RNA sequence: CCAAAACUAAUCACUUGUCACUUUCUAAUUGGUUCUUAGUACGUUACAAUUGUCUAAUAAACAAUUAGAAAGUAACAAGUGGUUCGUUUUGC
Numbered sequence: 001c002c003a004a005a006a007c008u009a010a011u012c013a014c015u016u017g018u019c020a021c022u023u024u025c026u027a028a029u030u031g032g033u034u035c036u037u038a039g040u041a042c043g044u045u046a047c048a049a050u051u052g053u054c055u056a057a058u059a060a061a062c063a064a065u066u067a068g069a070a071a072g073u074a075a076c077a078a079g080u081g082g083u084u085c086g087u088u089u090u091g092c
Stems, first nucleotide, its partner, number of pairs: 002091006009084010020073012033060002036057004
The record is a 92-nucleotide sequence from Prunus avium, which matches "MIR6288 microRNA precursor family" in Rfam. Gene Ontology terms of the family: miRNA-mediated post-transcriptional gene silencing and RISC complex. A search with the family's covariance model found it, with a score of 78 bits.